[Rfam]
RNA: mir-130 microRNA precursor family
RNA sequence: AAUUGCACCCUAUUCCCUACAUAGUGCACUGAGUACAAGUCAAAAGCAGUGCACUAUAUAGGGAAUAGGGUGCCAUUU
Numbered sequence: 001a002a003u004u005g006c007a008c009c010c011u012a013u014u015c016c017c018u019a020c021a022u023a024g025u026g027c028a029c030u031g032a033g034u035a036c037a038a039g040u041c042a043a044a045a046g047c048a049g050u051g052c053a054c055u056a057u058a059u060a061g062g063g064a065a066u067a068g069g070g071u072g073c074c075a076u077u078u
Stems, first nucleotide, its partner, number of pairs: 001078002005073006012066008022056009